RNA sequence: CAAAGCUACAGGUGAUCAGGUCUUUUUUUUUUUGUGGCAGAGUAUAUUUGAAGGCUCAAAAUCAUAUUUUUUCCAGUAAAUAAAAUGUAUUCAUAUGUUAGCUAA
Numbered sequence: 001c002a003a004a005g006c007u008a009c010a011g012g013u014g015a016u017c018a019g020g021u022c023u024u025u026u027u028u029u030u031u032u033u034g035u036g037g038c039a040g041a042g043u044a045u046a047u048u049u050g051a052a053g054g055c056u057c058a059a060a061a062u063c064a065u066a067u068u069u070u071u072u073c074c075a076g077u078a079a080a081u082a083a084a085a086u087g088u089a090u091u092c093a094u095a096u097g098u099u100a101g102c103u104a105a
Base pairs, nucleotide, nucleotide: 004103005102006101007100008098009097012094014092015091020088021087025084026083027082029079030078032076033075
MIR480 microRNA precursor family: a 105-nucleotide RNA sequence from Ardeotis kori. The family's consensus secondary structure was predicted with WAR. The literature on the family includes a 2005 paper in Plant Cell by Lu et al., "Novel and mechanical stress-responsive MicroRNAs in Populus trichocarpa that are absent from Arabidopsis". The family has 69 seed sequences and 3,070 matches in Rfam 15.1. A search with the family's covariance model found it, with a score of 36 bits.